[Rfam]
RNA sequence: AUACCUUUCUCGGCCUUUUGGCUAAGAUCAAGUGUAGUAUCUGUUUUUAUCAGUUUAAUAUAUGAUAUGUAAGUCAUUGUUCACACGAUAUAAAAUUUAUUUUAAUAUCUGAUAUGUGGGUCAAUGGCUCACACGAUAUAAAAUUUAUUUUUCGAAGGUGAAGAUCCAUCAAAGUAGCUUGCUACUUGGGUCUUCUAGCGUAGCCCAUGCGUUGUACUAUUGCACGGGCCUAACGCACCCCGC
Numbered sequence: 001a002u003a004c005c006u007u008u009c010u011c012g013g014c015c016u017u018u019u020g021g022c023u024a025a026g027a028u029c030a031a032g033u034g035u036a037g038u039a040u041c042u043g044u045u046u047u048u049a050u051c052a053g054u055u056u057a058a059u060a061u062a063u064g065a066u067a068u069g070u071a072a073g074u075c076a077u078u079g080u081u082c083a084c085a086c087g088a089u090a091u092a093a094a095a096u097u098u099a100u101u102u103u104a105a106u107a108u109c110u111g112a113u114a115u116g117u118g119g120g121u122c123a124a125u126g127g128c129u130c131a132c133a134c135g136a137u138a139u140a141a142a143a144u145u146u147a148u149u150u151u152u153c154g155a156a157g158g159u160g161a162a163g164a165u166c167c168a169u170c171a172a173a174g175u176a177g178c179u180u181g182c183u184a185c186u187u188g189g190g191u192c193u194u195c196u197a198g199c200g201u202a203g204c205c206c207a208u209g210c211g212u213u214g215u216a217c218u219a220u221u222g223c224a225c226g227g228g229c230c231u232a233a234c235g236c237a238c239c240c241c242g243c
Stems, first nucleotide, its partner, number of pairs: 008027003012023004048114006116132007160195008174185004198236004203231001205227002208224003
Dot-bracket structure: .......(((.((((....)))).)))....................((((((.......................................................)))))).(((((((...)))))))...........................((((((((......((((....))))..))))))))..((((.(.((.(((...........))).))...).)))).......

Rfam assigns this 243-nucleotide RNA from Salvia splendens to the family "U2 spliceosomal RNA".
From the family's description: U2 is a small nuclear RNA (snRNA) component of the spliceosome (involved in pre-mRNA splicing).
Rfam 15.1 lists 71,512 matches to the family in 2,642 species.
Rfam classes the family as a spliceosomal small nuclear RNA.
The literature on the family includes a 1997 paper in Nucleic Acids Res by Zwieb, "The uRNA database".